Shown here is a 69-nucleotide RNA sequence from Pseudothauera lacus, a member of the family "SAH (S-adenosyl-L-homocysteine) riboswitch aptamer". Pairs were carried over by alignment from the consensus structure, which is taken from published work. Its family is annotated with regulation of gene expression and S-adenosylhomocysteine metabolic process in the Gene Ontology. It scores 64 bits against the family's covariance model. The organism belongs to Pseudothauera, within Bacteria.

RNA sequence: CUUGCCGAGGAGCGCUGCGACCCGCCACACGGGCCAGGCUCGGCAACCGAACAACGGCGCUCGCAGACC
Numbered sequence: 001c002u003u004g005c006c007g008a009g010g011a012g013c014g015c016u017g018c019g020a021c022c023c024g025c026c027a028c029a030c031g032g033g034c035c036a037g038g039c040u041c042g043g044c045a046a047c048c049g050a051a052c053a054a055c056g057g058c059g060c061u062c063g064c065a066g067a068c069c
Stems, first nucleotide, its partner, number of pairs: 002046007021033004
Dot-bracket structure: .(((((((............((((.....))))......))))))).......................